[Rfam]
RNA: small nucleolar RNA snoR134
RNA sequence: CUGGACGAACUCUCCCUGGCUUAUCUGAAUCUCUACCUUUGAAGAGCAAAGCCCCAAUGUUGGCGCUAAACCCAUGCCGUUUUACGUGUUGCGGAAUAGCCCUUUCUUUUCUACUUGCUUUUGGUCUCAAAUCGGCGGCUAUACUC
Numbered sequence: 001c002u003g004g005a006c007g008a009a010c011u012c013u014c015c016c017u018g019g020c021u022u023a024u025c026u027g028a029a030u031c032u033c034u035a036c037c038u039u040u041g042a043a044g045a046g047c048a049a050a051g052c053c054c055c056a057a058u059g060u061u062g063g064c065g066c067u068a069a070a071c072c073c074a075u076g077c078c079g080u081u082u083u084a085c086g087u088g089u090u091g092c093g094g095a096a097u098a099g100c101c102c103u104u105u106c107u108u109u110u111c112u113a114c115u116u117g118c119u120u121u122u123g124g125u126c127u128c129a130a131a132u133c134g135g136c137g138g139c140u141a142u143a144c145u146c
Base pairs, nucleotide, nucleotide: 003066006063008061009060010059018053019052020051021050022048024045025044026043076139077138078137079136080135081134087129088128091125092124098119099118100117